This 272-nucleotide sequence from Nannospalax galili belongs to the Rfam family "Mason-Pfizer monkey virus packaging signal". It scores 144 bits against the family's covariance model. It is annotated as a cis-regulatory element. On this family, see Mustafa et al., Virus Res 2004: "Mutational analysis of the predicted secondary RNA structure of the Mason-Pfizer monkey virus packaging signal".
RNA sequence: UGGCACCCAACGUGGGGUCUGGAUACUGGGGACCACAUGAGGGACAUGAUGGAGGAAAAAGGGGUGCGCAUCCGCUCAAAUAAUUCGGAGACGCCACGGGAGCCUGCUUCAACCGAGCCAAAGGUAAGUUGGUCAUUCAAUCAUGGGGCAAGAAUUAAGCCAGCAUCAGAUUUAUGUGAUACAGUUAAGAGAAGCUCUGCAGGCAAGAGGAGUAAAGGUUAAAACUGAGGAUUUAUUUCAUUUCUUUGAUUUUGUAAAAGACAUCUGCCCAU
Number, nucleotide and partner (000 for none) at each position: 001u000002g000003g000004c000005a000006c031007c030008c029009a000010a000011c000012g026013u025014g024015g000016g000017g000018u000019c000020u000021g000022g000023a000024u014025a013026c012027u000028g000029g008030g007031g006032a000033c000034c000035a000036c048037a047038u046039g000040a000041g000042g000043g000044a000045c000046a038047u037048g036049a000050u000051g000052g000053a000054g000055g000056a000057a000058a000059a000060a000061g000062g000063g000064g000065u000066g000067c000068g000069c000070a000071u000072c000073c000074g000075c000076u000077c000078a000079a000080a000081u000082a000083a000084u123085u000086c000087g000088g000089a000090g000091a000092c115093g114094c000095c000096a000097c000098g108099g107100g000101a000102g000103c000104c000105u000106g000107c099108u098109u000110c000111a000112a000113c000114c093115g092116a000117g000118c000119c000120a000121a000122a000123g084124g000125u000126a000127a000128g000129u151130u150131g149132g000133u000134c148135a000136u147137u146138c145139a144140a000141u000142c000143a000144u139145g138146g137147g136148g134149c131150a130151a129152g000153a000154a000155u000156u199157a198158a000159g195160c194161c000162a000163g000164c000165a000166u000167c000168a000169g000170a000171u000172u000173u000174a000175u000176g000177u000178g000179a000180u000181a000182c000183a000184g000185u000186u000187a000188a000189g000190a000191g000192a000193a000194g160195c159196u000197c000198u157199g156200c000201a000202g000203g000204c000205a000206a000207g247208a246209g245210g244211a243212g242213u000214a000215a000216a234217g233218g232219u231220u230221a000222a000223a000224a000225c000226u000227g000228a000229g000230g220231a219232u218233u217234u216235a000236u000237u000238u000239c000240a000241u000242u212243u211244c210245u209246u208247u207248g000249a000250u000251u000252u000253u000254g000255u000256a000257a272258a000259a000260g269261a000262c267263a000264u000265c000266u000267g262268c000269c260270c000271a000272u257